Rfam assigns this 84-nucleotide RNA from Diachasma alloeum to the family "mir-263 microRNA precursor family". Rfam links the family to the GO terms RISC complex and miRNA-mediated post-transcriptional gene silencing. Pairs were carried over by alignment from the consensus structure, which was predicted with RNAalifold. A search with the family's covariance model found it, with a score of 63 bits. For this family Rfam cites "Direct sequencing and expression analysis of a large number of miRNAs in Aedes aegypti and a multi-species survey of novel mosquito miRNAs" (Li et al., BMC Genomics, 2009).
[Rfam]
RNA sequence: UGGACACUGUCAAUGGCACUGGAAGAAUUCACGGGGGAUUAAUGUAACAGUCCCGUGGAGCUCCCGUGUCAUACACAGCGUCCG
Numbered sequence: 001u002g003g004a005c006a007c008u009g010u011c012a013a014u015g016g017c018a019c020u021g022g023a024a025g026a027a028u029u030c031a032c033g034g035g036g037g038a039u040u041a042a043u044g045u046a047a048c049a050g051u052c053c054c055g056u057g058g059a060g061c062u063c064c065c066g067u068g069u070c071a072u073a074c075a076c077a078g079c080g081u082c083c084g
Stems, first nucleotide, its partner, number of pairs: 003082003007078004013072006021064002029058006